Shown here is a 188-nucleotide sequence from Phtheirospermum japonicum, a member of the family "U2 spliceosomal RNA".
The source organism's lineage runs through Eukaryota, Streptophytina, Tracheophyta, Orobanchaceae and Phtheirospermum.
On this family, see Zwieb, Nucleic Acids Res 1997: "The uRNA database".
The family is grouped with related families in Rfam's "U2 clan".
The base pairs follow the family's consensus structure, which is taken from published work.
About the family: U2 is a small nuclear RNA (snRNA) component of the spliceosome (involved in pre-mRNA splicing). Complementary binding between U2 snRNA (in an area lying towards the 5' end but 3' to hairpin I) and the branchpoint sequence (BPS) of the intron results the bulging out of an unpaired adenosine, on the BPS, which initiates a nucleophilic attack at the intronic 5' splice site, thus starting the first of two transesterification reactions that mediate splicing.
[Rfam]
RNA sequence: AUACUUUUUUUAGCUAAGAGUCAAGUGUAGUACCUUUUCUUAUCAGUUUUGUAUCUGAUAUGUGGACCAUCUGCCCACACGAUAUUAAAUUAAGCUUUUAGGGGGAAGGUCCGUCUAGGUAGCUUGCUACCUCGGCCUUCGAGCGUCGCCCGUGCGAUGCAGUACUGCACGGGCUUGGCUCACCCCAC
Numbered sequence: 001a002u003a004c005u006u007u008u009u010u011u012a013g014c015u016a017a018g019a020g021u022c023a024a025g026u027g028u029a030g031u032a033c034c035u036u037u038u039c040u041u042a043u044c045a046g047u048u049u050u051g052u053a054u055c056u057g058a059u060a061u062g063u064g065g066a067c068c069a070u071c072u073g074c075c076c077a078c079a080c081g082a083u084a085u086u087a088a089a090u091u092a093a094g095c096u097u098u099u100a101g102g103g104g105g106a107a108g109g110u111c112c113g114u115c116u117a118g119g120u121a122g123c124u125u126g127c128u129a130c131c132u133c134g135g136c137c138u139u140c141g142a143g144c145g146u147c148g149c150c151c152g153u154g155c156g157a158u159g160c161a162g163u164a165c166u167g168c169a170c171g172g173g174c175u176u177g178g179c180u181c182a183c184c185c186c187a188c
Stems, first nucleotide, its partner, number of pairs: 004013002041060006062078004067073001107139003111135003119130004143181001145179004150172006